[Rfam]
RNA sequence: CCGGGUCUACGCAGACACCCGGCAGUCAAGAUGCCUUCGUCUCAAGCGCUGC
Numbered sequence: 001c002c003g004g005g006u007c008u009a010c011g012c013a014g015a016c017a018c019c020c021g022g023c024a025g026u027c028a029a030g031a032u033g034c035c036u037u038c039g040u041c042u043c044a045a046g047c048g049c050u051g052c
Stems, first nucleotide, its partner, number of pairs: 001022006011052004029042005